RNA sequence: ACAUUUGUAAGAACCAUUUGAAUCAAGUAAUGUAGUGAUUCAAAUGGUUCUCCCCA
Dot-bracket structure: ......(..((((((((((((((((..........))))))))))))))))..)..
RNA: Plastid-ccsA-ndhD-1 3UTR RNA
Organism: Vitis vinifera